[Rfam]
RNA sequence: CUGAGGCCCUCGGUCCUGACUCCCAGCCGCUCACGCCCUGCCGCACUUCCCCGGUGGCAGGUCAGAGCGGAUGGGGAUCAGGACCGAGGGAGAAGGCCCC
Number, nucleotide and partner (000 for none) at each position: 001c000002u000003g000004a000005g000006g000007c000008c000009c000010u087011c086012g085013g084014u083015c082016c081017u000018g079019a078020c000021u076022c075023c074024c073025a072026g000027c070028c069029g068030c067031u066032c065033a000034c000035g063036c000037c061038c060039u059040g058041c057042c056043g055044c054045a000046c000047u000048u000049c000050c000051c000052c000053g000054g044055u043056g042057g041058c040059a039060g038061g037062u000063c035064a000065g032066a031067g030068c029069g028070g027071a000072u025073g024074g023075g022076g021077a000078u019079c018080a000081g016082g015083a014084c013085c012086g011087a010088g000089g000090g000091a000092g000093a000094a000095g000096g000097c000098c000099c000100c000
mraW RNA: a 100-nucleotide RNA sequence from Microbacterium terrae. It scores 66 bits against the family's covariance model. The family's RNA type in Rfam is cis-regulatory element.